[Rfam]
RNA: Small nucleolar RNA Z247
RNA sequence: CGCCUCGACGAUGAAGACCUCGUCUCCUACAUCCUCGCUGGCCUCGACAUGGACUUCAAUCCUGUCGUGUCAGCCGUGGCGGCCAGAGUCGAGCCCAUCACGGUGGGCGAGCUCUUGUCGCAGCUGAUCAGCUUCGAAA
Numbered sequence: 001c002g003c004c005u006c007g008a009c010g011a012u013g014a015a016g017a018c019c020u021c022g023u024c025u026c027c028u029a030c031a032u033c034c035u036c037g038c039u040g041g042c043c044u045c046g047a048c049a050u051g052g053a054c055u056u057c058a059a060u061c062c063u064g065u066c067g068u069g070u071c072a073g074c075c076g077u078g079g080c081g082g083c084c085a086g087a088g089u090c091g092a093g094c095c096c097a098u099c100a101c102g103g104u105g106g107g108c109g110a111g112c113u114c115u116u117g118u119c120g121c122a123g124c125u126g127a128u129c130a131g132c133u134u135c136g137a138a139a
Stems, first nucleotide, its partner, number of pairs: 005137004093108006
Dot-bracket structure: ....((((....................................................................................((((((....)))))).........................))))..